[Rfam]
RNA sequence: UAUCCGGUGAAAGUCCGGUCGUGGGAGGGGCCAAGCCCCCGCGUAGCUUGGAUUCUUAUGUAUGGCGAAAUCUGUGCGUAAAAGCGAAUCGACGAAAGUACUUGUCGGAGACAAGGC
Numbered sequence: 001u002a003u004c005c006g007g008u009g010a011a012a013g014u015c016c017g018g019u020c021g022u023g024g025g026a027g028g029g030g031c032c033a034a035g036c037c038c039c040c041g042c043g044u045a046g047c048u049u050g051g052a053u054u055c056u057u058a059u060g061u062a063u064g065g066c067g068a069a070a071u072c073u074g075u076g077c078g079u080a081a082a083a084g085c086g087a088a089u090c091g092a093c094g095a096a097a098g099u100a101c102u103u104g105u106c107g108g109a110g111a112c113a114a115g116g117c
Stems, first nucleotide, its partner, number of pairs: 020043005051090005056081006065072001098117001101115005

Shown here is a 117-nucleotide RNA from Paenibacillus sp. OAS669, a member of the family "Group II catalytic intron D1-D4-4". Rfam describes the family as follows. Group II introns are found in rRNA, tRNA and mRNA of organelles in fungi, plants and protists, and also in mRNA in bacteria. The pairing is the family consensus, mapped onto this sequence. The organism belongs to Paenibacillus, within Bacteria. The family has 90 seed sequences and 840 matches in Rfam 15.1. The literature on the family includes a 2003 paper in Crit Rev Biochem Mol Biol by Lehmann and Schmidt, "Group II introns: structure and catalytic versatility of large natural ribozymes".